Lysine riboswitch aptamer: a 180-nucleotide sequence from Ruminococcaceae bacterium BL-4.

RNA sequence: AUACUUGAUAGAGGCGCAAACUGCAUGAGUAUGAAAGAGUAGGACUGCCGAAUUUCCGAAGAGGCUUUCAAAAAGGGUCGUUUGCCGAAGAAAAUUGUUUGCGGCAAAACAAGCUUUCUGGUUGUGUCGUUUGCGAAAGCAACUCAACUGUCAUCAUUACGAUGGAGUGCUAUCGGAUUC
Numbered sequence: 001a002u003a004c005u006u007g008a009u010a011g012a013g014g015c016g017c018a019a020a021c022u023g024c025a026u027g028a029g030u031a032u033g034a035a036a037g038a039g040u041a042g043g044a045c046u047g048c049c050g051a052a053u054u055u056c057c058g059a060a061g062a063g064g065c066u067u068u069c070a071a072a073a074a075g076g077g078u079c080g081u082u083u084g085c086c087g088a089a090g091a092a093a094a095u096u097g098u099u100u101g102c103g104g105c106a107a108a109a110c111a112a113g114c115u116u117u118c119u120g121g122u123u124g125u126g127u128c129g130u131u132u133g134c135g136a137a138a139g140c141a142a143c144u145c146a147a148c149u150g151u152c153a154u155c156a157u158u159a160c161g162a163u164g165g166a167g168u169g170c171u172a173u174c175g176g177a178u179u180c
Stems, first nucleotide, its partner, number of pairs: 006175006016085006023078002032070006089119005095112006120149005126143002129140002151165005

A search with the family's covariance model found it, with a score of 96 bits. Taxonomically the source falls in Oscillospiraceae (Bacteria, Bacillati, Bacillota, Clostridia).